[Rfam]
RNA sequence: ACCGCACACCCACCCAUGCCUGGCAGGAGCGGGGGAACCGCACGCAGUUCGCCGGUCCGGGAGUUCCGGAACGGCUAGGGGUGAAGCCGCACAGCGCGGCCGGGCAUCUCCAGUCCGAACCCGACAGCUCACCUCGUAGGCGCCGGAGAGGAAUGUC
Numbered sequence: 001a002c003c004g005c006a007c008a009c010c011c012a013c014c015c016a017u018g019c020c021u022g023g024c025a026g027g028a029g030c031g032g033g034g035g036a037a038c039c040g041c042a043c044g045c046a047g048u049u050c051g052c053c054g055g056u057c058c059g060g061g062a063g064u065u066c067c068g069g070a071a072c073g074g075c076u077a078g079g080g081g082u083g084a085a086g087c088c089g090c091a092c093a094g095c096g097c098g099g100c101c102g103g104g105c106a107u108c109u110c111c112a113g114u115c116c117g118a119a120c121c122c123g124a125c126a127g128c129u130c131a132c133c134u135c136g137u138a139g140g141c142g143c144c145g146g147a148g149a150g151g152a153a154u155g156u157c
Stems, first nucleotide, its partner, number of pairs: 011142001013140002019027002029137006039078001079122003087099004102116004
Rfam assigns this 157-nucleotide sequence from Streptomyces sulfonofaciens to the family "c-di-AMP riboswitch aptamer (ydaO/yuaA leader)". The source organism's lineage runs through Bacteria, Bacillati, Actinomycetota, Kitasatosporales and Streptomyces. Pairs were carried over by alignment from the consensus structure. Rfam describes the family as follows. This family represents a conserved RNA structure found upstream of the ydaO and yuaA genes in Bacillus subtilis and related genes in other bacteria.